[Rfam]
A member of the RNA family "mir-219 microRNA precursor family" from Takifugu rubripes, 78 nucleotides long. The sequence is in the family's curated seed alignment.
RNA sequence: UCGGAGCUGAUUGUCCAAACGCAAUUCUUGCGUCUGCCUUUGUGAAACCAGGAGUUGUGGAUGGACAUCACGCCCCUG
Numbered sequence: 001u002c003g004g005a006g007c008u009g010a011u012u013g014u015c016c017a018a019a020c021g022c023a024a025u026u027c028u029u030g031c032g033u034c035u036g037c038c039u040u041u042g043u044g045a046a047a048c049c050a051g052g053a054g055u056u057g058u059g060g061a062u063g064g065a066c067a068u069c070a071c072g073c074c075c076c077u078g
Stems, first nucleotide, its partner, number of pairs: 003076002006073002008070004013066005020059011

Rfam links the family to the GO terms RISC complex and miRNA-mediated post-transcriptional gene silencing. Pairs were carried over by alignment from the consensus structure, which was predicted with RNAalifold.